[Rfam]
Nucleotides: 100
Stems, first nucleotide, its partner, number of pairs: 003012001025032001033062003077098001080095001
Number, partner (000 for none) and nucleotide at each position: 001000u002000a003012g004000u005000c006000u007000g008000a009000u010000g011000c012003c013000a014000a015000g016000g017000u018000u019000c020000c021000g022000g023000a024000c025032g026000a027000c028000c029000a030000g031000g032025c033062a034061g035060g036000c037000c038000a039000c040000g041000a042000a043000a044000a045000a046000a047000c048000c049000a050000u051000g052000a053000c054000c055000a056000c057000c058000c059000u060035u061034c062033u063000g064000c065000c066000u067000g068000c069000u070000c071000u072000u073000u074000c075000c076000g077098g078000u079000g080095c081000c082000a083000a084000c085000a086000c087000c088000a089000u090000c091000u092000a093000c094000g095080g096000a097000g098077c099000u100000g
Pyrrolysine insertion sequence mttB: a 100-nucleotide RNA. The literature on the family includes a 2013 paper in BMC Bioinformatics by Theil Have et al., "Effects of using coding potential, sequence conservation and mRNA structure conservation for predicting pyrroly-sine containing genes". Rfam classes the family as a cis-regulatory element. The family's consensus secondary structure was predicted with CMfinder.